[Rfam]
RNA sequence: UUGAAAAUUUGAAGACUUCAACUUGCAAACUUGAAGAAUUUGCAGACUUGAAGAAUUUGAAGACUUCAACUUACAUACUUGGAGAUUUUGAAGACUUCAUCU
Number, nucleotide and partner (000 for none) at each position: 001u099002u000003g097004a096005a000006a000007a000008u092009u091010u090011g089012a088013a087014g000015a000016c084017u083018u082019c081020a080021a000022c000023u000024u075025g074026c000027a072028a000029a000030c000031u069032u068033g067034a066035a065036g064037a000038a000039u000040u000041u000042g000043c000044a000045g000046a000047c000048u000049u000050g000051a000052a000053g000054a000055a000056u000057u000058u000059g000060a000061a000062g000063a000064c036065u035066u034067c033068a032069a031070c000071u000072u027073a000074c025075a024076u000077a000078c000079u000080u020081g019082g018083a017084g016085a000086u000087u013088u012089u011090g010091a009092a008093g000094a000095c000096u004097u003098c000099a001100u000101c000102u000
The family of this 102-nucleotide sequence from Solanum commersonii is "MIR8024 microRNA precursor family". The source organism's lineage runs through Eukaryota, Streptophyta, Mesangiospermae, Solaneae and Solanum.